Shown here is a 45-nucleotide sequence from Gracilibacillus halophilus, a member of the family "PreQ1 (pre queuosine) riboswitch aptamer". The pairing is the family consensus, mapped onto this sequence. A search with the family's covariance model found it, with a score of 49 bits. Lineage of the source: Bacteria > Bacillati > Caryophanales > Gracilibacillus > Gracilibacillus halophilus. Its family is annotated with queuosine biosynthetic process in the Gene Ontology. For this family Rfam cites "Identification of four genes necessary for biosynthesis of the modified nucleoside queuosine" (Reader et al., J Biol Chem, 2004).
RNA sequence: GCAGGAGAGGUUCUAGCCAAACCCUCUAUAAAAAACUAAGGAGAA
Numbered sequence: 001g002c003a004g005g006a007g008a009g010g011u012u013c014u015a016g017c018c019a020a021a022c023c024c025u026c027u028a029u030a031a032a033a034a035a036c037u038a039a040g041g042a043g044a045a
Stems, first nucleotide, its partner, number of pairs: 006027005014038002